[Rfam]
RNA: Bacterial large signal recognition particle RNA
RNA sequence: CCGUGCUAGAUGGGGAGGUAGCGGUGCCCUGUAACUCGCAAUCCGCUGUAGCGAGGUUGAAGUCCUGUUAGCGGUCUUGUCGAUGUGAGGCCUGGUCUCUACGGCAGACGUUGACGGACGGGUCCUCCGCAAUGAGUAAUUGUGAACCUGGUCAGGUCCGGAAGGAAGCAGCCAUAAGCAGUCCCACUCUUGUGCCGGAGGGGAGCCUGUCCCGAGUUGCGCCUUAGAGGUGCCGCUCGGAUCGCAAUGAUCAAUAACAGGUGCACGG
Numbered sequence: 001c002c003g004u005g006c007u008a009g010a011u012g013g014g015g016a017g018g019u020a021g022c023g024g025u026g027c028c029c030u031g032u033a034a035c036u037c038g039c040a041a042u043c044c045g046c047u048g049u050a051g052c053g054a055g056g057u058u059g060a061a062g063u064c065c066u067g068u069u070a071g072c073g074g075u076c077u078u079g080u081c082g083a084u085g086u087g088a089g090g091c092c093u094g095g096u097c098u099c100u101a102c103g104g105c106a107g108a109c110g111u112u113g114a115c116g117g118a119c120g121g122g123u124c125c126u127c128c129g130c131a132a133u134g135a136g137u138a139a140u141u142g143u144g145a146a147c148c149u150g151g152u153c154a155g156g157u158c159c160g161g162a163a164g165g166a167a168g169c170a171g172c173c174a175u176a177a178g179c180a181g182u183c184c185c186a187c188u189c190u191u192g193u194g195c196c197g198g199a200g201g202g203g204a205g206c207c208u209g210u211c212c213c214g215a216g217u218u219g220c221g222c223c224u225u226a227g228a229g230g231u232g233c234c235g236c237u238c239g240g241a242u243c244g245c246a247a248u249g250a251u252c253a254a255u256a257a258c259a260g261g262u263g264c265a266c267g268g
Base pairs, nucleotide, nucleotide: 001268002267003266004265005264006263009058010057011056012030013029014028015027017025019023035055036054037053038052039051064261065260066259067258068257069256070255073252074251075250076249081244082243083242084241086239087238088237089236093235094234096230097229098228099227100226101225104222105221107218108217109216116212117211118210119209120208121207122206123205124201125200126199127198128197129196130192131191134189135188136187137186139182140181141180142179143178149174150173151172152171157166158165159164